[Rfam]
RNA sequence: UACUCCCUCCGUCCCAAAAUACAAAAACCUAGUACUGGAUGUGGGUACUGUCCAGAUUCGUAGUACUAGAAUGUGUCACAUCCAGUACUAGGUUUUUGUAUUUUGGGACGGAGGGAGUAA
Numbered sequence: 001u002a003c004u005c006c007c008u009c010c011g012u013c014c015c016a017a018a019a020u021a022c023a024a025a026a027a028c029c030u031a032g033u034a035c036u037g038g039a040u041g042u043g044g045g046u047a048c049u050g051u052c053c054a055g056a057u058u059c060g061u062a063g064u065a066c067u068a069g070a071a072u073g074u075g076u077c078a079c080a081u082c083c084a085g086u087a088c089u090a091g092g093u094u095u096u097u098g099u100a101u102u103u104u105g106g107g108a109c110g111g112a113g114g115g116a117g118u119a120a
Base pairs, nucleotide, nucleotide: 001119002118003117004116005115006114007113008112009111010110011109012108013107014106015105016104017103018102019101020100021099022098023097024096025095026094027093028092029091030090031089032088033087034086035085038082039081040080041079042078043077044076
RNA: MIR1862 microRNA precursor family
Organism: Oryza meyeriana